Overview
Shown here is a 123-nucleotide sequence from Triticum urartu, a member of the family "MIR408 microRNA precursor family". Taxonomically the source falls in Triticum (Eukaryota, Streptophyta, Mesangiospermae, Pooideae). The literature on the family includes a 2004 paper in Plant Cell by Sunkar and Zhu, "Novel and stress-regulated microRNAs and other small RNAs from Arabidopsis". Pairs were carried over by alignment from the consensus structure, which was predicted with WAR.
RNA sequence: GAAGAAAAAAAAGAGGAGAAGAAGAAAGGAAUAGUGGAGAGGAAGAGAAAAUAGAAUAAAAUUUUAUUCUAUUUUCUCUUCCUCUCCACUAUUCCUUUCUUCUUCUCCUCUUCUUUUUUCUUC
Numbered sequence: 001g002a003a004g005a006a007a008a009a010a011a012a013g014a015g016g017a018g019a020a021g022a023a024g025a026a027a028g029g030a031a032u033a034g035u036g037g038a039g040a041g042g043a044a045g046a047g048a049a050a051a052u053a054g055a056a057u058a059a060a061a062u063u064u065u066a067u068u069c070u071a072u073u074u075u076c077u078c079u080u081c082c083u084c085u086c087c088a089c090u091a092u093u094c095c096u097u098u099c100u101u102c103u104u105c106u107c108c109u110c111u112u113c114u115u116u117u118u119u120c121u122u123c
Base pairs, nucleotide, nucleotide: 017106018105019104021102022101023100024099025098026097027096029094030093031092032091033090034089036087037086038085039084040083041082045078046077